[Rfam]
RNA sequence: AAAAUCUUAAAUUAGUUUCCUUGUAUAUGUCCUGGAAUAUGGCCGGGACGUCUCUACCAUGCUUCCGCAAAAUGCAUGUCUACAGGGGAUGGAACACAAGCC
Numbered sequence: 001a002a003a004a005u006c007u008u009a010a011a012u013u014a015g016u017u018u019c020c021u022u023g024u025a026u027a028u029g030u031c032c033u034g035g036a037a038u039a040u041g042g043c044c045g046g047g048a049c050g051u052c053u054c055u056a057c058c059a060u061g062c063u064u065c066c067g068c069a070a071a072a073u074g075c076a077u078g079u080c081u082a083c084a085g086g087g088g089a090u091g092g093a094a095c096a097c098a099a100g101c102c
Base pairs, nucleotide, nucleotide: 018088019087020086021085022084023083024082025081029049030048031047032046033045034044035043058078059077060076061075062074064072
Rfam assigns this 102-nucleotide sequence from Mesobacillus campisalis to the family "Purine riboswitch aptamer".
Pairs were carried over by alignment from the consensus structure, which is taken from published work.